[Rfam]
RNA sequence: GGAGCCAAUUCUGGAGAGACUGCAUGUGCAGCGCCGAAGGGUUCACAAUCUCAGGCAAACGGACAGAAUCGUACUC
Numbered sequence: 001g002g003a004g005c006c007a008a009u010u011c012u013g014g015a016g017a018g019a020c021u022g023c024a025u026g027u028g029c030a031g032c033g034c035c036g037a038a039g040g041g042u043u044c045a046c047a048a049u050c051u052c053a054g055g056c057a058a059a060c061g062g063a064c065a066g067a068a069u070c071g072u073a074c075u076c
Stems, first nucleotide, its partner, number of pairs: 006071001008069006020031004033056003036052002040050003

This 76-nucleotide RNA from Pontibacillus halophilus belongs to the Rfam family "Glycine riboswitch aptamer". The match comes from Rfam's covariance-model search (49 bits). The organism belongs to Pontibacillus halophilus, within Bacteria.